[Rfam]
RNA: permuted transfer-messenger RNA
RNA sequence: AGCUGUAUAUCUAGUCGACUGACGGAUUUCUGGACGCGGGUUCAACUCCCGCCGUCUCCACCAAUAGGGUAUUGGUACAGUAUCUUACUGAUGGGGACGUAUUGGUUUCGACAGGGGUAAAUAGGAAGAUUGGCAGCCGGUAGGCGAUGACCGUAAAUCAAGCAAAACUUAUAAAUGCAAACGAUGAAAGUUACGCAUUAGCCGCCUAA
Numbered sequence: 001a002g003c004u005g006u007a008u009a010u011c012u013a014g015u016c017g018a019c020u021g022a023c024g025g026a027u028u029u030c031u032g033g034a035c036g037c038g039g040g041u042u043c044a045a046c047u048c049c050c051g052c053c054g055u056c057u058c059c060a061c062c063a064a065u066a067g068g069g070u071a072u073u074g075g076u077a078c079a080g081u082a083u084c085u086u087a088c089u090g091a092u093g094g095g096g097a098c099g100u101a102u103u104g105g106u107u108u109c110g111a112c113a114g115g116g117g118u119a120a121a122u123a124g125g126a127a128g129a130u131u132g133g134c135a136g137c138c139g140g141u142a143g144g145c146g147a148u149g150a151c152c153g154u155a156a157a158u159c160a161a162g163c164a165a166a167a168c169u170u171a172u173a174a175a176u177g178c179a180a181a182c183g184a185u186g187a188a189a190g191u192u193a194c195g196c197a198u199u200a201g202c203c204g205c206c207u208a209a
Base pairs, nucleotide, nucleotide: 002137003136004135005134015127026118027117028116030114031113032112036052037051038050039049040048053099054098055097056096057095058094059093138153139152140151141150